Notes:
This 64-nucleotide RNA sequence from Salibacterium salarium belongs to the Rfam family "Bacillaceae-1 RNA".

RNA sequence: AGUAGAGGAGGUUCGGUUAAAACCGCCUCGUCCGGAGACAACACCGAAUGAACCUGCAUCCUGG
Numbered sequence: 001a002g003u004a005g006a007g008g009a010g011g012u013u014c015g016g017u018u019a020a021a022a023c024c025g026c027c028u029c030g031u032c033c034g035g036a037g038a039c040a041a042c043a044c045c046g047a048a049u050g051a052a053c054c055u056g057c058a059u060c061c062u063g064g
Stems, first nucleotide, its partner, number of pairs: 011049007025039001027037003057063001
Taxonomically the source falls in Salibacterium (Bacteria, Bacillati, Bacillota, Bacilli).
The family's RNA type in Rfam is small RNA.